[Rfam]
The record is a 100-nucleotide RNA sequence from Clostridium amylolyticum, which matches "Purine riboswitch aptamer" in Rfam.
NCBI's taxonomy places the organism under Bacteria, Bacillati, Eubacteriales, Clostridiaceae, Clostridium.
The match comes from Rfam's covariance-model search (79 bits).
RNA sequence: UUAGUAAUUAUAAUAUAAAUUCGUAUAACUCUAACGAUAUGGGUUAGGGGUUUCUACCAGGAACCAUUAAUUCCUGAUUACGAAGAAGGUACAUUUUGGU
Numbered sequence: 001u002u003a004g005u006a007a008u009u010a011u012a013a014u015a016u017a018a019a020u021u022c023g024u025a026u027a028a029c030u031c032u033a034a035c036g037a038u039a040u041g042g043g044u045u046a047g048g049g050g051u052u053u054c055u056a057c058c059a060g061g062a063a064c065c066a067u068u069a070a071u072u073c074c075u076g077a078u079u080a081c082g083a084a085g086a087a088g089g090u091a092c093a094u095u096u097u098g099g100u
Stems, first nucleotide, its partner, number of pairs: 020084006029049007058076006